The record is a 79-nucleotide sequence from Pomacea canaliculata, which matches "let-7 microRNA precursor family" in Rfam. Rfam's curators write: This family represents the microRNAs (miRNA) let-7 and mir-98. let-7 was identified from a study of developmental timing in C. elegans, and was later shown to be part of a much larger class of non-coding RNAs termed miRNAs. Rfam links the family to the GO terms RISC complex and miRNA-mediated post-transcriptional gene silencing. The base pairs follow the family's consensus structure, which was predicted with RNAalifold. For this family Rfam cites "microRNAs: tiny regulators with great potential" (Ambros, Cell, 2001).
RNA sequence: UCAGGCUGAGGUAGUCGGUUGUAUAGUUGAGUAUUACACCAUGUCGGGAGAAACUGUACAACCUGCUAGCUUUCCCUGA
Numbered sequence: 001u002c003a004g005g006c007u008g009a010g011g012u013a014g015u016c017g018g019u020u021g022u023a024u025a026g027u028u029g030a031g032u033a034u035u036a037c038a039c040c041a042u043g044u045c046g047g048g049a050g051a052a053a054c055u056g057u058a059c060a061a062c063c064u065g066c067u068a069g070c071u072u073u074c075c076c077u078g079a
Stems, first nucleotide, its partner, number of pairs: 001079005008072003012068004017063011029039001031037002042049001
The match comes from Rfam's covariance-model search (58 bits).